[Rfam]
The family of this 76-nucleotide RNA sequence from Chrysochloris asiatica is "mir-483 microRNA precursor family". Its family is annotated with miRNA-mediated post-transcriptional gene silencing and RISC complex in the Gene Ontology. The match comes from Rfam's covariance-model search (87 bits).

RNA sequence: GGGGGAGAGGAUGGGAGGAAAGAAGGGCGUGGUCUCAUUGAAGCUCCUCACUCCUCUCCUCCCGUCCUCUUCUCUC
Numbered sequence: 001g002g003g004g005g006a007g008a009g010g011a012u013g014g015g016a017g018g019a020a021a022g023a024a025g026g027g028c029g030u031g032g033u034c035u036c037a038u039u040g041a042a043g044c045u046c047c048u049c050a051c052u053c054c055u056c057u058c059c060u061c062c063c064g065u066c067c068u069c070u071u072c073u074c075u076c
Stems, first nucleotide, its partner, number of pairs: 004072015022056001024055004029051003
Dot-bracket structure: ...(((((((((((((((...(.((((.(((.................)))))))).)))))))))))))))....